A member of the RNA family "Small Cajal body specific RNA 6" from Smithornis capensis, 263 nucleotides long. A search with the family's covariance model found it, with a score of 122 bits. The base pairs follow the family's consensus structure, which is taken from published work.
RNA sequence: GGUCUGUGAUGAAUAGUAAAAGGUCUGAUUAUCCCAGGACUUGCACUUCCAUGACCUUUUCUCCCAGCAGUGUCUCCCCAGCCAUGGCACAGUGAUGGUGUGGCUGGCAGAGUGUUUGCUGACAGCCUGGGAUGUGUUCAGUUCAUGUGCACCUGGAGUCUCGGAGACAUGACUGGGAUCAGCAUCCAACAGUCCUGCCUGAAGGAGUUUGGGGUCUUGGAUUGUUCUAACUGGACAUGUGAUCUGACUUUUCUGCUGAGACC
Numbered sequence: 001g002g003u004c005u006g007u008g009a010u011g012a013a014u015a016g017u018a019a020a021a022g023g024u025c026u027g028a029u030u031a032u033c034c035c036a037g038g039a040c041u042u043g044c045a046c047u048u049c050c051a052u053g054a055c056c057u058u059u060u061c062u063c064c065c066a067g068c069a070g071u072g073u074c075u076c077c078c079c080a081g082c083c084a085u086g087g088c089a090c091a092g093u094g095a096u097g098g099u100g101u102g103g104c105u106g107g108c109a110g111a112g113u114g115u116u117u118g119c120u121g122a123c124a125g126c127c128u129g130g131g132a133u134g135u136g137u138u139c140a141g142u143u144c145a146u147g148u149g150c151a152c153c154u155g156g157a158g159u160c161u162c163g164g165a166g167a168c169a170u171g172a173c174u175g176g177g178a179u180c181a182g183c184a185u186c187c188a189a190c191a192g193u194c195c196u197g198c199c200u201g202a203a204g205g206a207g208u209u210u211g212g213g214g215u216c217u218u219g220g221a222u223u224g225u226u227c228u229a230a231c232u233g234g235a236c237a238u239g240u241g242a243u244c245u246g247a248c249u250u251u252u253c254u255g256c257u258g259a260g261a262c263c
Base pairs, nucleotide, nucleotide: 001263002262003261004260035246036245037244038243040241048221049220050219051218053216054215061207062206063205064204065121066120067119068118069117070116078107079106080105081104082103083102084101085100086099129187131186132185133184134183135182144171145170146169147168148167150166152164153163
It is annotated as a small Cajal body RNA.